[Rfam]
RNA sequence: UUCUUAUCAAGAGAGACGGAGGGAUCGGCCCUGUGAUGUCUCGGCAACCUGCAGUAUGCUGAAAGGUGCUAAUUCCGACAAAGGAUUCUUUGGGAGAUGAGGA
Numbered sequence: 001u002u003c004u005u006a007u008c009a010a011g012a013g014a015g016a017c018g019g020a021g022g023g024a025u026c027g028g029c030c031c032u033g034u035g036a037u038g039u040c041u042c043g044g045c046a047a048c049c050u051g052c053a054g055u056a057u058g059c060u061g062a063a064a065g066g067u068g069c070u071a072a073u074u075c076c077g078a079c080a081a082a083g084g085a086u087u088c089u090u091u092g093g094g095a096g097a098u099g100a101g102g103a
Stems, first nucleotide, its partner, number of pairs: 001103008013042005021031003025078004043070004048066002052061002074095001079092005
SAM riboswitch aptamer (S box leader): a 103-nucleotide sequence from Sedimentibacter saalensis. Rfam links the family to the GO term regulation of gene expression. A search with the family's covariance model found it, with a score of 87 bits.